[Rfam]
RNA sequence: AGAGCGUUGGCGUUCCCGAGGACGCAGCCCACCUGCGAGCUUUCACGGAAGCCAUGACCAGGUAUUCUGCUCCUCCGGGGGACGAACCACAG
Dot-bracket structure: .....(((.(..(((..(.((....(((..(((((...(((((....)))))......))))).....))))).)..)))..).))).....
RNA: Hepatitis C virus stem-loop SL8670